The record is a 64-nucleotide RNA sequence from Ketogulonicigenium robustum, which matches "L2-Alphaproteobacteria ribosomal protein leader" in Rfam. For this family Rfam cites "Discovery of 20 novel ribosomal leader candidates in bacteria and archaea" (Eckert and Weinberg, BMC Microbiol, 2020). Pairs were carried over by alignment from the consensus structure, which is taken from published work.
RNA sequence: CGGGACCUUCGGGGCCCUUCACGUGUCGGGCUUGACCGCCCGCAAAGCAAACGGAAGACAGAAG
Numbered sequence: 001c002g003g004g005a006c007c008u009u010c011g012g013g014g015c016c017c018u019u020c021a022c023g024u025g026u027c028g029g030g031c032u033u034g035a036c037c038g039c040c041c042g043c044a045a046a047g048c049a050a051a052c053g054g055a056a057g058a059c060a061g062a063a064g
Base pairs, nucleotide, nucleotide: 002017003016004015006014007013008012027042028041029040030039031038